[Rfam]
RNA: Small nucleolar RNA SNORD53/SNORD92
RNA sequence: GUGCUGUGAUGAUACUAAAUUGUGGUUUCGACUUAACUGAAUGUUGAAUGAGGACAUCUAAUUCCUUGGCUGUGUCUGAGCAU
Numbered sequence: 001g002u003g004c005u006g007u008g009a010u011g012a013u014a015c016u017a018a019a020u021u022g023u024g025g026u027u028u029c030g031a032c033u034u035a036a037c038u039g040a041a042u043g044u045u046g047a048a049u050g051a052g053g054a055c056a057u058c059u060a061a062u063u064c065c066u067u068g069g070c071u072g073u074g075u076c077u078g079a080g081c082a083u
Stems, first nucleotide, its partner, number of pairs: 001083004